[Rfam]
RNA sequence: UCGGAUAAGGAACGCUGCGACAGGUACUCCUGCCAGGCUUAUCCAAUGUUUCAUUUGUAAAACGGCGUUCAUUAUUA
Numbered sequence: 001u002c003g004g005a006u007a008a009g010g011a012a013c014g015c016u017g018c019g020a021c022a023g024g025u026a027c028u029c030c031u032g033c034c035a036g037g038c039u040u041a042u043c044c045a046a047u048g049u050u051u052c053a054u055u056u057g058u059a060a061a062a063c064g065g066c067g068u069u070c071a072u073u074a075u076u077a
Base pairs, nucleotide, nucleotide: 003044004043005042006041007040008039021032022031023030024029